[Rfam]
RNA: mir-166 microRNA precursor family
RNA sequence: GUUGAGGGGAAUGUUGUCUGGUUCGAGAUCCUUCGUAUGAAGCUCAAGCAGCGUUUGAAUGAUUUCGGACCAGGCUUCAUUCCCCUCAAC
Numbered sequence: 001g002u003u004g005a006g007g008g009g010a011a012u013g014u015u016g017u018c019u020g021g022u023u024c025g026a027g028a029u030c031c032u033u034c035g036u037a038u039g040a041a042g043c044u045c046a047a048g049c050a051g052c053g054u055u056u057g058a059a060u061g062a063u064u065u066c067g068g069a070c071c072a073g074g075c076u077u078c079a080u081u082c083c084c085c086u087c088a089a090c
Stems, first nucleotide, its partner, number of pairs: 001090013016075006024067003